[Rfam]
RNA sequence: AGCUGCAUUACAGGGCAAGAUUCUUCAUUGGCAGCUAGCUCCACACUAUGUUAAAUGCAUCUCAGCCACAUUCAUGCAAUAAUUCCAGUGUGCAAUCUGCCAAAGGAGAUUUGCCCAGUGAUUUUUUG
Numbered sequence: 001a002g003c004u005g006c007a008u009u010a011c012a013g014g015g016c017a018a019g020a021u022u023c024u025u026c027a028u029u030g031g032c033a034g035c036u037a038g039c040u041c042c043a044c045a046c047u048a049u050g051u052u053a054a055a056u057g058c059a060u061c062u063c064a065g066c067c068a069c070a071u072u073c074a075u076g077c078a079a080u081a082a083u084u085c086c087a088g089u090g091u092g093c094a095a096u097c098u099g100c101c102a103a104a105g106g107a108g109a110u111u112u113g114c115c116c117a118g119u120g121a122u123u124u125u126u127u128g
Stems, first nucleotide, its partner, number of pairs: 005124001007122003011118001013116007023108004029102006036095001
mir-399 microRNA precursor family: a 128-nucleotide sequence from Lupinus angustifolius. About the family: mir-399 was identified in both Arabidopsis thaliana and Oryza sativa computationally and was later experimentally verified. mir-399 is thought to target mRNAs coding for a phosphatase transporter. The mature sequence is excised from the 3' arm of the hairpin. The family's consensus secondary structure was predicted with PFOLD. For this family Rfam cites "Computational Identification of Plant MicroRNAs and Their Targets, Including a Stress-Induced miRNA" (Jones-Rhoades and Bartel, Mol Cell, 2004).